Iron response element I: a 35-nucleotide RNA sequence from Heterocephalus glaber. Rfam classes the family as a cis-regulatory element. For this family Rfam cites "Identification of the iron-responsive element for the translational regulation of human ferritin mRNA" (Hentze et al., Science, 1987). The family's consensus secondary structure is taken from published work. Rfam 15.1 lists 6,829 matches to the family in 599 species. Taxonomically the source falls in Heterocephalus (Eukaryota, Vertebrata, Sarcopterygii, Glires).

RNA sequence: CUGUCUCUUGCUUCAAGAGUGUUUGAACUGAACAG
Numbered sequence: 001c002u003g004u005c006u007c008u009u010g011c012u013u014c015a016a017g018a019g020u021g022u023u024u025g026a027a028c029u030g031a032a033c034a035g
Base pairs, nucleotide, nucleotide: 001035002034003033004032006031007030010028012027013026014025015024016023